[Rfam]
Shown here is a 110-nucleotide sequence from Mesobacillus foraminis, a member of the family "SAM riboswitch aptamer (S box leader)". Taxonomically the source falls in Mesobacillus (Bacteria, Bacillati, Bacillota, Bacilli). The base pairs follow the family's consensus structure, which is taken from published work.
RNA sequence: UUCUUAUCAAGAGAGGUGGAGGGACUUGGCCCUUUGAAGCCUCGGCAGCAGACUCAGCAUAUGGGAACUGUGCCAAUUCCAGCAAGCACUAGUGGCUUGAAAGAUAAGAA
Numbered sequence: 001u002u003c004u005u006a007u008c009a010a011g012a013g014a015g016g017u018g019g020a021g022g023g024a025c026u027u028g029g030c031c032c033u034u035u036g037a038a039g040c041c042u043c044g045g046c047a048g049c050a051g052a053c054u055c056a057g058c059a060u061a062u063g064g065g066a067a068c069u070g071u072g073c074c075a076a077u078u079c080c081a082g083c084a085a086g087c088a089c090u091a092g093u094g095g096c097u098u099g100a101a102a103g104a105u106a107a108g109a110a
Stems, first nucleotide, its partner, number of pairs: 001110008013043005021032003026082004044074004049070002053065003078102001083099005